RNA sequence: AGGCAGCCAGUUUGCAAGAUGUCAUUGCAUUCAUGGUGUUAAUGUGUCCAGAAACUAAAAUCUUUUGUUUUUCUGAUUCGCCGAGAAGAAAUACUUUUUUAAUGAAGCGAGUCAAGUAACGCAACAGGACAUG
Numbered sequence: 001a002g003g004c005a006g007c008c009a010g011u012u013u014g015c016a017a018g019a020u021g022u023c024a025u026u027g028c029a030u031u032c033a034u035g036g037u038g039u040u041a042a043u044g045u046g047u048c049c050a051g052a053a054a055c056u057a058a059a060a061u062c063u064u065u066u067g068u069u070u071u072u073c074u075g076a077u078u079c080g081c082c083g084a085g086a087a088g089a090a091a092u093a094c095u096u097u098u099u100u101a102a103u104g105a106a107g108c109g110a111g112u113c114a115a116g117u118a119a120c121g122c123a124a125c126a127g128g129a130c131a132u133g
Stems, first nucleotide, its partner, number of pairs: 002040004007036002010032001013029005062127002067122002069119001074114005080108002085100005